[Rfam]
The record is a 155-nucleotide RNA from Poecilia reticulata, which matches "Small Cajal body specific RNA 1" in Rfam.
RNA sequence: GUGCACCAGAUACGAGUCUGACAGUCUGCUGUGUCCCAGAUGUGGGGUUCCUCUGUGGCUGCUCGGCUUCAAACGGUGCGAGAGCAACAUCAGCCAUGAGAUUUAAGCCCUUCAGUGGAAGCAACACUGAAGAGUUAUAACUCAGAGGCACAGAU
Numbered sequence: 001g002u003g004c005a006c007c008a009g010a011u012a013c014g015a016g017u018c019u020g021a022c023a024g025u026c027u028g029c030u031g032u033g034u035c036c037c038a039g040a041u042g043u044g045g046g047g048u049u050c051c052u053c054u055g056u057g058g059c060u061g062c063u064c065g066g067c068u069u070c071a072a073a074c075g076g077u078g079c080g081a082g083a084g085c086a087a088c089a090u091c092a093g094c095c096a097u098g099a100g101a102u103u104u105a106a107g108c109c110c111u112u113c114a115g116u117g118g119a120a121g122c123a124a125c126a127c128u129g130a131a132g133a134g135u136u137a138u139a140a141c142u143c144a145g146a147g148g149c150a151c152a153g154a155u
Base pairs, nucleotide, nucleotide: 003079004078005077006076007075015068016067017066018065020063022061023060024059025058026057028051031050033048034047035046036045037044038043093149094148095147112130113129114128115127116126117125132143133142134141135140
Rfam links the family to the GO terms RNA processing, Cajal body and nucleolus. Rfam's curators write: scaRNAs are a specific class of small nuclear RNAs which localise to the Cajal bodies and guide the modification of RNA polymerase II transcribed spliceosomal RNAs U1, U2, U4, U5 and U12. ACA35 belong to the H/ACA box class of guide RNAs as it has the predicted hairpin-hinge-hairpin-tail structure, conserved H/ACA-box motifs and is found associated with GAR1. It is predicted to guide pseudouridylation of the U2 spliceosomal snRNA at residue U89. By type it is a small Cajal body RNA.